[Rfam]
Nucleotides: 075
Base pairs, nucleotide, nucleotide: 015025016024017023032070038065039064043060044059047056048055049054
Number, partner (000 for none) and nucleotide at each position: 001000c002000u003000u004000c005000a006000c007000c008000g009000a010000c011000c012000c013000c014000a015025g016024c017023c018000a019000c020000a021000g022000c023017g024016g025015c026000c027000g028000c029000c030000g031000a032070g033000g034000g035000u036000c037000c038065c039064g040000c041000c042000c043060c044059u045000g046000g047056c048055c049054g050000u051000a052000c053000g054049u055048g056047g057000c058000g059044a060043g061000c062000a063000g064039c065038g066000c067000c068000c069000g070032u071000g072000c073000c074000u075000c